[Rfam]
RNA sequence: AUGUCGGUAUCUUUUCUAGAACCGAACAUGAUUUUUUUGUUAAAUUUUUAACGACUUGUAUCAUUUCGAACAAGAACGGAGG
Numbered sequence: 001a002u003g004u005c006g007g008u009a010u011c012u013u014u015u016c017u018a019g020a021a022c023c024g025a026a027c028a029u030g031a032u033u034u035u036u037u038u039g040u041u042a043a044a045u046u047u048u049u050a051a052c053g054a055c056u057u058g059u060a061u062c063a064u065u066u067c068g069a070a071c072a073a074g075a076a077c078g079g080a081g082g
Stems, first nucleotide, its partner, number of pairs: 001029003004025005010020002052078002055074005061069002

Shown here is an 82-nucleotide RNA sequence from Clostridium cellulovorans, a member of the family "pan motif". NCBI's taxonomy places the organism under Bacteria, Clostridia, Eubacteriales, Clostridiaceae, Clostridium cellulovorans.